Shown here is a 170-nucleotide RNA sequence, a member of the family "FMN riboswitch aptamer (RFN element)". The base pairs follow the family's consensus structure, which is taken from published work.
RNA sequence: CGACGUCUUCAGGGCGGGGCGAAAUUCCCCACCGGCGGUAGGUCCCCAGGGACGAGCCCGCGAGCGCUCACGGCACCAGCCGCGAGGUCAGCAGAUCCGGUCGAAUGCCGGAGCCGACGGUUGGCGGCGGGAAACCGCCGCCUCACAGUCCGGAUGAAGAGAAGACGGUU
Numbered sequence: 001c002g003a004c005g006u007c008u009u010c011a012g013g014g015c016g017g018g019g020c021g022a023a024a025u026u027c028c029c030c031a032c033c034g035g036c037g038g039u040a041g042g043u044c045c046c047c048a049g050g051g052a053c054g055a056g057c058c059c060g061c062g063a064g065c066g067c068u069c070a071c072g073g074c075a076c077c078a079g080c081c082g083c084g085a086g087g088u089c090a091g092c093a094g095a096u097c098c099g100g101u102c103g104a105a106u107g108c109c110g111g112a113g114c115c116g117a118c119g120g121u122u123g124g125c126g127g128c129g130g131g132a133a134a135c136c137g138c139c140g141c142c143u144c145a146c147a148g149u150c151c152g153g154a155u156g157a158a159g160a161g162a163a164g165a166c167g168g169u170u
Base pairs, nucleotide, nucleotide: 004167005166006165007164008163009162010161017029018028019027033116034115035061036060037059038058056114057113064092065091096112097111098110099109100108118152119151120150
Description: The match comes from Rfam's covariance-model search (82 bits).